A member of the RNA family "pan motif" from Bacillus mesophilus, 99 nucleotides long.

RNA sequence: CGGGUAGUAUCCAAAUAUAGGAACUACACCUAUCGUUAUCGUUUACUAUAGUUACCCAAAACUUAAUCUGCCUUGAUCCAUUGCGACUAGGACAGAGGG
Number, nucleotide and partner (000 for none) at each position: 001c000002g030003g029004g027005u026006a025007g024008u023009a000010u022011c021012c000013a000014a000015a000016u000017a000018u000019a000020g000021g011022a010023a008024c007025u006026a005027c004028a000029c003030c002031u000032a000033u000034c000035g000036u000037u000038a000039u000040c000041g000042u000043u000044u000045a000046c000047u000048a000049u000050a000051g000052u000053u000054a000055c000056c000057c000058a000059a000060a000061a000062c000063u000064u000065a000066a000067u000068c095069u094070g093071c091072c090073u089074u000075g087076a000077u086078c085079c000080a000081u000082u000083g000084c000085g078086a077087c075088u000089a073090g072091g071092a000093c070094a069095g068096a000097g000098g000099g000
A search with the family's covariance model found it, with a score of 53 bits. Pairs were carried over by alignment from the consensus structure, which is taken from published work.